Rfam assigns this 91-nucleotide sequence from Lupinus albus to the family "small nucleolar RNA snoR117".
By type it is a C/D-box small nucleolar RNA.
Pairs were carried over by alignment from the consensus structure, which was predicted with RNAalifold.
RNA sequence: AGCCUGUGAUGUUCAAAUUGUCCGUACCAUCUGAGAUUCAGCUUUUUAACGAUUGCUCUGAUGCAUACACUAAUUAUUUAUUCUGAGGCUU
Numbered sequence: 001a002g003c004c005u006g007u008g009a010u011g012u013u014c015a016a017a018u019u020g021u022c023c024g025u026a027c028c029a030u031c032u033g034a035g036a037u038u039c040a041g042c043u044u045u046u047u048a049a050c051g052a053u054u055g056c057u058c059u060g061a062u063g064c065a066u067a068c069a070c071u072a073a074u075u076a077u078u079u080a081u082u083c084u085g086a087g088g089c090u091u
Stems, first nucleotide, its partner, number of pairs: 001090004
The organism belongs to Lupinus, within Eukaryota. On this family, see Chen and Wu, Nucleic Acids Res 2009: "Mining small RNA sequencing data: a new approach to identify small nucleolar RNAs in Arabidopsis".